A member of the RNA family "Bradyrhizobiaceae sRNA BjrC174" from Breoghania corrubedonensis, 216 nucleotides long. The pairing is the family consensus, mapped onto this sequence. The literature on the family includes a 2012 paper in RNA Biol by Madhugiri et al., "Small RNAs of the Bradyrhizobium/Rhodopseudomonas lineage and their analysis". Taxonomically the source falls in Breoghania (Bacteria, Pseudomonadati, Pseudomonadota, Hyphomicrobiales).
RNA sequence: GCCCCGCAGACUUAAAAUUCUUAUUUUCGCCUUAAUGCCGCCCUUGCGGCGUCACUUUGGACUUCCAUAUUCCAAUCGUUGCCUCAGACGGCCCGGUUCCGCCGGGACUUCGGAUUUUUCAGCCCCCCAGCCCCCCGGGGACUUGGCUAAGAACCGGGCCACCUGGCAACAUUAUCCACCAGACUGAAUUCCAGGGUCGGCUUUGCCGGCCUUUUU
Numbered sequence: 001g002c003c004c005c006g007c008a009g010a011c012u013u014a015a016a017a018u019u020c021u022u023a024u025u026u027u028c029g030c031c032u033u034a035a036u037g038c039c040g041c042c043c044u045u046g047c048g049g050c051g052u053c054a055c056u057u058u059g060g061a062c063u064u065c066c067a068u069a070u071u072c073c074a075a076u077c078g079u080u081g082c083c084u085c086a087g088a089c090g091g092c093c094c095g096g097u098u099c100c101g102c103c104g105g106g107a108c109u110u111c112g113g114a115u116u117u118u119u120c121a122g123c124c125c126c127c128c129a130g131c132c133c134c135c136c137g138g139g140g141a142c143u144u145g146g147c148u149a150a151g152a153a154c155c156g157g158g159c160c161a162c163c164u165g166g167c168a169a170c171a172u173u174a175u176c177c178a179c180c181a182g183a184c185u186g187a188a189u190u191c192c193a194g195g196g197u198c199g200g201c202u203u204u205g206c207c208g209g210c211c212u213u214u215u216u
Stems, first nucleotide, its partner, number of pairs: 033174001037047002078170006090160010105143002108140006122131002194212008